[Rfam]
RNA: Group II catalytic intron D1-D4-1
Organism: Metabacillus sediminilitoris
RNA sequence: UAACCUAUUUAGUGAUAGAUAGCUGAACAGCAGAAGUCAGCAGAGGUCAUAGUACUUUACCUAACUCGAGAAGGUAAGGGAUGAC
Numbered sequence: 001u002a003a004c005c006u007a008u009u010u011a012g013u014g015a016u017a018g019a020u021a022g023c024u025g026a027a028c029a030g031c032a033g034a035a036g037u038c039a040g041c042a043g044a045g046g047u048c049a050u051a052g053u054a055c056u057u058u059a060c061c062u063a064a065c066u067c068g069a070g071a072a073g074g075u076a077a078g079g080g081a082u083g084a085c
Base pairs, nucleotide, nucleotide: 001025002024005022006021007020008019009018010017011016037044038043046085047084048083055078056077057076060074061073